[Rfam]
RNA sequence: UGCCAUGAUGGUGUAAUUUGCGUCUGACUCUGUGAUCAGUGACAGUUGCCUGCUGUCUAAUGCUGGCGCAGAGGAUUGAGACAUCUAAGACUGAGCA
Numbered sequence: 001u002g003c004c005a006u007g008a009u010g011g012u013g014u015a016a017u018u019u020g021c022g023u024c025u026g027a028c029u030c031u032g033u034g035a036u037c038a039g040u041g042a043c044a045g046u047u048g049c050c051u052g053c054u055g056u057c058u059a060a061u062g063c064u065g066g067c068g069c070a071g072a073g074g075a076u077u078g079a080g081a082c083a084u085c086u087a088a089g090a091c092u093g094a095g096c097a
Stems, first nucleotide, its partner, number of pairs: 001097003021080001023079002030071005039063002041057005